[Rfam]
RNA: MIR8565 microRNA precursor family
Organism: Amborella trichopoda
RNA sequence: GCGGCACCUAUGUGUGUAGGAUUCCAAAGGAUCACUAUUAAAUUUGGCAUAGAUUUUUAGAAAAGUUAUCACAUAGGUGUGGGACUUGAUUUUUUUAGAGAUUUGUGCCAAAUUUAAUGGUUAUCCUUUGGGGUCUUACACAUAUGGGUGUGGG
Numbered sequence: 001g002c003g004g005c006a007c008c009u010a011u012g013u014g015u016g017u018a019g020g021a022u023u024c025c026a027a028a029g030g031a032u033c034a035c036u037a038u039u040a041a042a043u044u045u046g047g048c049a050u051a052g053a054u055u056u057u058u059a060g061a062a063a064a065g066u067u068a069u070c071a072c073a074u075a076g077g078u079g080u081g082g083g084a085c086u087u088g089a090u091u092u093u094u095u096u097a098g099a100g101a102u103u104u105g106u107g108c109c110a111a112a113u114u115u116a117a118u119g120g121u122u123a124u125c126c127u128u129u130g131g132g133g134u135c136u137u138a139c140a141c142a143u144a145u146g147g148g149u150g151u152g153g154g
Stems, first nucleotide, its partner, number of pairs: 002153001004151010015140014030125003034121035069082005